This 110-nucleotide RNA from Clostridium acetireducens belongs to the Rfam family "PyrR binding site". It scores 60 bits against the family's covariance model. The literature on the family includes a 2001 paper in Nucleic Acids Res by Bonner et al., "Molecular recognition of pyr mRNA by the Bacillus subtilis attenuation regulatory protein PyrR". The source organism's lineage runs through Bacteria, Clostridia, Clostridiaceae, Clostridium and Clostridium acetireducens. Rfam classes the family as a cis-regulatory element.

RNA sequence: AGUACCUUUAACAAGAUCCAGAGAGGUCUUGAAGGAAGAGUAGAUAAUUUUUAAAUAAGAUUUUUGUAGACGGGAUAUCUAUGCCUUCCUUUAAGGAAGGCAUUUUUUAU
Numbered sequence: 001a002g003u004a005c006c007u008u009u010a011a012c013a014a015g016a017u018c019c020a021g022a023g024a025g026g027u028c029u030u031g032a033a034g035g036a037a038g039a040g041u042a043g044a045u046a047a048u049u050u051u052u053a054a055a056u057a058a059g060a061u062u063u064u065u066g067u068a069g070a071c072g073g074g075a076u077a078u079c080u081a082u083g084c085c086u087u088c089c090u091u092u093a094a095g096g097a098a099g100g101c102a103u104u105u106u107u108u109a110u
Stems, first nucleotide, its partner, number of pairs: 003037001005035005013030006044076002048072001050070004055065001057063001081103010